Shown here is a 328-nucleotide RNA from Aspergillus clavatus, a member of the family "A. fumigatus sRNA Afu_309". Taxonomically the source falls in Aspergillus clavatus (Eukaryota, Fungi, saccharomyceta, Aspergillus). The family's RNA type in Rfam is small RNA. The family's consensus secondary structure was predicted with WAR. The family has 10 seed sequences and 663 matches in Rfam 15.1.
RNA sequence: AUCAACCGAACACAACGAUCUGUGGCCAGCGAUCCUGAGCAUGGAGCAGCUCUUCUUCCGGGAGGAGCUGUCUUCGUGUCUCGGUUGAUUGCUGGUCAGUUCGACGACUUAGGGAGCCAUCACUUUUCGAAUGGUGUCUAUUUCCGGUCGACAGAUCUAAGAUCGAAUGCUGGUGUCGGGUAUCACUUAGUCUUGAGCUCCCUUUUCUUUCGGGAAUUGGUGAGCUCGGCUGGAGGGCCUGGCGCCGGCGGCGUCAUAUUCCUGAUCCCUUCACCGAUUUGGCCGUCGGCUCGUGAGGUUGGGGAAAAACCAUGACCAGCCAACAUAC
Numbered sequence: 001a002u003c004a005a006c007c008g009a010a011c012a013c014a015a016c017g018a019u020c021u022g023u024g025g026c027c028a029g030c031g032a033u034c035c036u037g038a039g040c041a042u043g044g045a046g047c048a049g050c051u052c053u054u055c056u057u058c059c060g061g062g063a064g065g066a067g068c069u070g071u072c073u074u075c076g077u078g079u080c081u082c083g084g085u086u087g088a089u090u091g092c093u094g095g096u097c098a099g100u101u102c103g104a105c106g107a108c109u110u111a112g113g114g115a116g117c118c119a120u121c122a123c124u125u126u127u128c129g130a131a132u133g134g135u136g137u138c139u140a141u142u143u144c145c146g147g148u149c150g151a152c153a154g155a156u157c158u159a160a161g162a163u164c165g166a167a168u169g170c171u172g173g174u175g176u177c178g179g180g181u182a183u184c185a186c187u188u189a190g191u192c193u194u195g196a197g198c199u200c201c202c203u204u205u206u207c208u209u210u211c212g213g214g215a216a217u218u219g220g221u222g223a224g225c226u227c228g229g230c231u232g233g234a235g236g237g238c239c240u241g242g243c244g245c246c247g248g249c250g251g252c253g254u255c256a257u258a259u260u261c262c263u264g265a266u267c268c269c270u271u272c273a274c275c276g277a278u279u280u281g282g283c284c285g286u287c288g289g290c291u292c293g294u295g296a297g298g299u300u301g302g303g304g305a306a307a308a309a310c311c312a313u314g315a316c317c318a319g320c321c322a323a324c325a326u327a328c
Stems, first nucleotide, its partner, number of pairs: 017157007024097006031090004035084005040078002043074002046071002049068003053064004105150005112139003116135003169245002175243006189231004195227006201220002250321003253316005266305005273299003281291004